[Rfam]
RNA sequence: AGAGCAGGCUGGAUGAUCGCUGGCCAACUCAAGGGUUGGCGGGAGGAAAGUCCGAGCUCCGCAGGGCAAGGUGCUGGGUAACGCCCAGUGGGGGCGACCCUAAGGAAAGUGCCACAGAGAAUAGACCGCCGGGGUGGAGAACCCACCUCGGCAAGGGUGAAACGGCGAGGUAAGAGCUCACCAGUUCCGGCGGCGACGCCGGAAGCUAGGCAAACCCCACCUGGAGCAAGGCCAAAUAGGGGAGCGUGAGAGGACGGCCCGUCCGAGGCUCCCGGGUAGGCUGCUGGAGACCGCCAGCAAUGGCGGUUCUAGAGGAAUGAUCAUCACCGGAGGACUCCGGAACAGAACUCGGCUUAUGGCCUGCUCUCGAU
Numbered sequence: 001a002g003a004g005c006a007g008g009c010u011g012g013a014u015g016a017u018c019g020c021u022g023g024c025c026a027a028c029u030c031a032a033g034g035g036u037u038g039g040c041g042g043g044a045g046g047a048a049a050g051u052c053c054g055a056g057c058u059c060c061g062c063a064g065g066g067c068a069a070g071g072u073g074c075u076g077g078g079u080a081a082c083g084c085c086c087a088g089u090g091g092g093g094g095c096g097a098c099c100c101u102a103a104g105g106a107a108a109g110u111g112c113c114a115c116a117g118a119g120a121a122u123a124g125a126c127c128g129c130c131g132g133g134g135u136g137g138a139g140a141a142c143c144c145a146c147c148u149c150g151g152c153a154a155g156g157g158u159g160a161a162a163c164g165g166c167g168a169g170g171u172a173a174g175a176g177c178u179c180a181c182c183a184g185u186u187c188c189g190g191c192g193g194c195g196a197c198g199c200c201g202g203a204a205g206c207u208a209g210g211c212a213a214a215c216c217c218c219a220c221c222u223g224g225a226g227c228a229a230g231g232c233c234a235a236a237u238a239g240g241g242g243a244g245c246g247u248g249a250g251a252g253g254a255c256g257g258c259c260c261g262u263c264c265g266a267g268g269c270u271c272c273c274g275g276g277u278a279g280g281c282u283g284c285u286g287g288a289g290a291c292c293g294c295c296a297g298c299a300a301u302g303g304c305g306g307u308u309c310u311a312g313a314g315g316a317a318u319g320a321u322c323a324u325c326a327c328c329g330g331a332g333g334a335c336u337c338c339g340g341a342a343c344a345g346a347a348c349u350c351g352g353c354u355u356a357u358g359g360c361c362u363g364c365u366c367u368c369g370a371u
Stems, first nucleotide, its partner, number of pairs: 001367011012325007020043002023040006048355003052352005057226004064260004069222005074088005089103001090101004104217002109215002111211003126156002128152009164182002167179003184206001185204008230282004240273006252264004289308008
A member of the RNA family "Bacterial RNase P class A" from Desulfobacca acetoxidans, 371 nucleotides long. The source organism's lineage runs through Bacteria, Pseudomonadati, Desulfobaccales, Desulfobacca and Desulfobacca acetoxidans. It is annotated as a ribozyme. The base pairs follow the family's consensus structure, which is taken from published work.